[Rfam]
RNA sequence: GUUUUCUGAUGCAAAAUACGCGCAAUGCAGAGAUAGCCGACGUUUUAAAGCGUCGGUUAUUUUUUUGC
Numbered sequence: 001g002u003u004u005u006c007u008g009a010u011g012c013a014a015a016a017u018a019c020g021c022g023c024a025a026u027g028c029a030g031a032g033a034u035a036g037c038c039g040a041c042g043u044u045u046u047a048a049a050g051c052g053u054c055g056g057u058u059a060u061u062u063u064u065u066u067g068c
Base pairs, nucleotide, nucleotide: 011021012020034059035058036057037056038055039054040053041052042051